The record is a 97-nucleotide RNA from Bacillus sp. Y1, which matches "TPP riboswitch aptamer (THI element)" in Rfam. From the family's description: Vitamin B(1) in its active form thiamin pyrophosphate (TPP) is an essential coenzyme that is synthesised by coupling of pyrimidine and thiazole moieties in bacteria. The match comes from Rfam's covariance-model search (68 bits).
[Rfam]
RNA sequence: GAAAUUAGCUAGGGGUGCCUAAAGGCUGAGAGGAAUCUUUCCAACCCUUGAACCUGAUUUGGUUAGAACCAACGUAGGGAAGCAAUCAUUUUGCAUG
Numbered sequence: 001g002a003a004a005u006u007a008g009c010u011a012g013g014g015g016u017g018c019c020u021a022a023a024g025g026c027u028g029a030g031a032g033g034a035a036u037c038u039u040u041c042c043a044a045c046c047c048u049u050g051a052a053c054c055u056g057a058u059u060u061g062g063u064u065a066g067a068a069c070c071a072a073c074g075u076a077g078g079g080a081a082g083c084a085a086u087c088a089u090u091u092u093g094c095a096u097g
Stems, first nucleotide, its partner, number of pairs: 006085001008083003011048004017026003033041003053078004059072004